The record is a 587-nucleotide part of an RNA from Sneathiella litorea, which matches "Bacterial large subunit ribosomal RNA" in Rfam.
RNA sequence: CCCGCGGUUAGACGGAAAGACCCCGUGCACCUUUACUAUAGCUUUGCAGUGGUAUCAGGAUUUGAAUGUGUAGAAUAGGUGGGAGCCUUUGAAGCAGUGACGCCAGUUAUUGUGGAGGCACCUUUGAAAUACCACCCUUUUGACUUUUGAUAUCUAACCGCGAACCGUUAUCCGGUUCCGGGACCCUGCAUGGUGGGUAGUUUGACUGGGGCGGUCGCCUCCUAAAUGGUAACGGAGGCGCGCGAUGGUUGGCUCAAGCUGGUCGGAAAUCAGCUGAUGAGUGCAAUGGCAUAAGCCAGCCUGACUGCGAGACUGACAAGUCGAGCAGAGACGAAAGUCGGUCAUAGUGAUCCGGUGGUCCCGUGUGGAAGGGCCAUCGCUCAACGGAUAAAAGGUACGCCGGGGAUAACAGGCUGAUAAUGCCCAAGAGUCCAUAUCGACGGCAUUGUUUGGCACCUCGAUGUCGGCUCAUCUCAUCCUGGGGCUGGAGCAGGUCCCAAGGGUUUGGCUGUUCGCCAAUUAAAGAGGUACGUGAGCUGGGUUUAGAACGUCGUGAGACAGUUCGGUCCCUAUCUGCCGUGGGUGUA
Numbered sequence: 001c002c003c004g005c006g007g008u009u010a011g012a013c014g015g016a017a018a019g020a021c022c023c024c025g026u027g028c029a030c031c032u033u034u035a036c037u038a039u040a041g042c043u044u045u046g047c048a049g050u051g052g053u054a055u056c057a058g059g060a061u062u063u064g065a066a067u068g069u070g071u072a073g074a075a076u077a078g079g080u081g082g083g084a085g086c087c088u089u090u091g092a093a094g095c096a097g098u099g100a101c102g103c104c105a106g107u108u109a110u111u112g113u114g115g116a117g118g119c120a121c122c123u124u125u126g127a128a129a130u131a132c133c134a135c136c137c138u139u140u141u142g143a144c145u146u147u148u149g150a151u152a153u154c155u156a157a158c159c160g161c162g163a164a165c166c167g168u169u170a171u172c173c174g175g176u177u178c179c180g181g182g183a184c185c186c187u188g189c190a191u192g193g194u195g196g197g198u199a200g201u202u203u204g205a206c207u208g209g210g211g212c213g214g215u216c217g218c219c220u221c222c223u224a225a226a227u228g229g230u231a232a233c234g235g236a237g238g239c240g241c242g243c244g245a246u247g248g249u250u251g252g253c254u255c256a257a258g259c260u261g262g263u264c265g266g267a268a269a270u271c272a273g274c275u276g277a278u279g280a281g282u283g284c285a286a287u288g289g290c291a292u293a294a295g296c297c298a299g300c301c302u303g304a305c306u307g308c309g310a311g312a313c314u315g316a317c318a319a320g321u322c323g324a325g326c327a328g329a330g331a332c333g334a335a336a337g338u339c340g341g342u343c344a345u346a347g348u349g350a351u352c353c354g355g356u357g358g359u360c361c362c363g364u365g366u367g368g369a370a371g372g373g374c375c376a377u378c379g380c381u382c383a384a385c386g387g388a389u390a391a392a393a394g395g396u397a398c399g400c401c402g403g404g405g406a407u408a409a410c411a412g413g414c415u416g417a418u419a420a421u422g423c424c425c426a427a428g429a430g431u432c433c434a435u436a437u438c439g440a441c442g443g444c445a446u447u448g449u450u451u452g453g454c455a456c457c458u459c460g461a462u463g464u465c466g467g468c469u470c471a472u473c474u475c476a477u478c479c480u481g482g483g484g485c486u487g488g489a490g491c492a493g494g495u496c497c498c499a500a501g502g503g504u505u506u507g508g509c510u511g512u513u514c515g516c517c518a519a520u521u522a523a524a525g526a527g528g529u530a531c532g533u534g535a536g537c538u539g540g541g542u543u544u545a546g547a548a549c550g551u552c553g554u555g556a557g558a559c560a561g562u563u564c565g566g567u568c569c570c571u572a573u574c575u576g577c578c579g580u581g582g583g584u585g586u587a
Base pairs, nucleotide, nucleotide: 001583002582003581004580005579006578007577008576010575011574012573014570015569022404023403024402025401027400028399029396030395031394032393033392035201036200037199038198042193043192045190046189047188048187051154052153053152054151055150056149057148058147059146060145062143063142064141065140066139068137078136079135080134081133082132085119086118087117094113095112096111097110098109099108100107101106158181159180160179162178163177164176165175166174167173204216205215206214207213217239218238219237220236221235222234240385242342243341248300249299250298251297252296253295254280255279257275258274259273260272261271262270281290282289305328306327307326308325311322312321313320330339331338332337353379354378355377356376357375358374359373361372362371413454414453415452417451418448419447420446421445422444423443424442428438429437465540466538467537468536469535470532471529472528473527474526475525478503479502481498482497483496484495485494486493505519506518507517508516509515546564547563548562549561550559551558552557
Taxonomically the source falls in Sneathiella (Bacteria, Alphaproteobacteria, Sneathiellales, Sneathiellaceae).